[Rfam]
RNA sequence: UCCAUCGCGAGGUGGAAUCUGAAGGACUGGAACCCGUAGGGUUCCCAGAGGCAAAAUCCCGGGCCGACGAACAGAAAUCGCAUAUAAGGCAUUGCAAGGCGGACGAGUUUGCUAAGCAAAACGAAGUCCCAAAGGUCGAAGAGGAAGAGAACAGACUUUGACCGUACUGCCCGAACCUUGCAGUGUAAAUGCGGCGGCUGGAUGGGAUGAAGGUUAUCGGA
Numbered sequence: 001u002c003c004a005u006c007g008c009g010a011g012g013u014g015g016a017a018u019c020u021g022a023a024g025g026a027c028u029g030g031a032a033c034c035c036g037u038a039g040g041g042u043u044c045c046c047a048g049a050g051g052c053a054a055a056a057u058c059c060c061g062g063g064c065c066g067a068c069g070a071a072c073a074g075a076a077a078u079c080g081c082a083u084a085u086a087a088g089g090c091a092u093u094g095c096a097a098g099g100c101g102g103a104c105g106a107g108u109u110u111g112c113u114a115a116g117c118a119a120a121a122c123g124a125a126g127u128c129c130c131a132a133a134g135g136u137c138g139a140a141g142a143g144g145a146a147g148a149g150a151a152c153a154g155a156c157u158u159u160g161a162c163c164g165u166a167c168u169g170c171c172c173g174a175a176c177c178u179u180g181c182a183g184u185g186u187a188a189a190u191g192c193g194g195c196g197g198c199u200g201g202a203u204g205g206g207a208u209g210a211a212g213g214u215u216a217u218c219g220g221a
Base pairs, nucleotide, nucleotide: 001016002015003014004013005012006011045220046219048217051214052213056208057207058206059205060204061203062199063198064197065196066195078194079193080192081191082190083189089186090185091184093182094181095180096179097178098177099176101129102128103127104126107122108121109120110119
Rfam assigns this 221-nucleotide sequence to the family "Group II catalytic intron D1-D4-3". Rfam's curators put it in the seed alignment. The pairing is the family consensus, mapped onto this sequence.